A member of the RNA family "T-box leader" from Andreesenella acetica, 247 nucleotides long.
RNA sequence: AUGAAAACGAAGAUAGAGACAUAUAUUUAUGUUAAACAGUCUUAGAGAGUCGGUGCUUGCUGAAAGCCGAUACUGUCCAUAGAUAUAGAUCACUCUUGAGUUAUAUCUUUGAAAACUUCUUGUAAGUUAGUAGAGGAUAUCGAUUAGCCCCGUUAAAGGCUUAGGUUUGUUGGAACUGAAGAAGAGGUAUCUAUUUUUAUACGUAGAUACAAUUAAGGUGGUACCGCGGAUGAUAUCCGUCCUUAAA
Numbered sequence: 001a002u003g004a005a006a007a008c009g010a011a012g013a014u015a016g017a018g019a020c021a022u023a024u025a026u027u028u029a030u031g032u033u034a035a036a037c038a039g040u041c042u043u044a045g046a047g048a049g050u051c052g053g054u055g056c057u058u059g060c061u062g063a064a065a066g067c068c069g070a071u072a073c074u075g076u077c078c079a080u081a082g083a084u085a086u087a088g089a090u091c092a093c094u095c096u097u098g099a100g101u102u103a104u105a106u107c108u109u110u111g112a113a114a115a116c117u118u119c120u121u122g123u124a125a126g127u128u129a130g131u132a133g134a135g136g137a138u139a140u141c142g143a144u145u146a147g148c149c150c151c152g153u154u155a156a157a158g159g160c161u162u163a164g165g166u167u168u169g170u171u172g173g174a175a176c177u178g179a180a181g182a183a184g185a186g187g188u189a190u191c192u193a194u195u196u197u198u199a200u201a202c203g204u205a206g207a208u209a210c211a212a213u214u215a216a217g218g219u220g221g222u223a224c225c226g227c228g229g230a231u232g233a234u235a236u237c238c239g240u241c242c243u244u245a246a247a
Stems, first nucleotide, its partner, number of pairs: 007101002015096004024085006038074003049071006104139007141152002187210007215244004226240005
Rfam describes the family as follows. Uncharged tRNA acts as the effector for transcription antitermination of genes in the T-box leader family. T-boxes are found upstream of many aminoacyl-tRNA synthetase genes and some amino acid biosynthetic genes usually in Gram-positive bacteria.
By type it is a cis-regulatory leader.
NCBI's taxonomy places the organism under Bacteria, Bacillati, Bacillota, Peptostreptococcales, Andreesenella.
Rfam 15.1 lists 19,395 matches to the family in 1,923 species.